Bradyrhizobiaceae sRNA BjrC68: an 83-nucleotide RNA from Bradyrhizobium japonicum.
The organism belongs to Bradyrhizobium japonicum, within Bacteria.

[Rfam]
RNA sequence: CCACGACUACGGUUUGGGGCACAUACCCGGCAAUGUCCCGACCGUUGAGGGGCUUCAGCGCAAGCUGAAGCCCCUUUCUUUUG
Numbered sequence: 001c002c003a004c005g006a007c008u009a010c011g012g013u014u015u016g017g018g019g020c021a022c023a024u025a026c027c028c029g030g031c032a033a034u035g036u037c038c039c040g041a042c043c044g045u046u047g048a049g050g051g052g053c054u055u056c057a058g059c060g061c062a063a064g065c066u067g068a069a070g071c072c073c074c075u076u077u078c079u080u081u082u083g
Base pairs, nucleotide, nucleotide: 010044011043012042013041014040016039017038018037019036049074050073051072052071053070054069055068056067058065059064